[Rfam]
RNA sequence: GUGCAUCCAGUAGGAAUUGAACCUAUGAAUUUGCCAAUUAUAAGUUGGGCGCUUUAAGUAUCCAGCCAUGGAUGC
Numbered sequence: 001g002u003g004c005a006u007c008c009a010g011u012a013g014g015a016a017u018u019g020a021a022c023c024u025a026u027g028a029a030u031u032u033g034c035c036a037a038u039u040a041u042a043a044g045u046u047g048g049g050c051g052c053u054u055u056a057a058g059u060a061u062c063c064a065g066c067c068a069u070g071g072a073u074g075c
Base pairs, nucleotide, nucleotide: 003075004074005073006072007071008070010026011025012024013023014022040069041068044066045065046064047063048062049061051059
The family of this 75-nucleotide sequence from Dendrobium catenatum is "Plastid-ycf2 5UTR RNA". The base pairs follow the family's consensus structure, which was predicted with LocARNA. The literature on the family includes a 2023 paper in Plant Commun by Richter et al., "Retrograde signaling in plants: A critical review focusing on the GUN pathway and beyond". Plastid ycf2 is a non-coding RNA (ncRNA) recognised in plastids.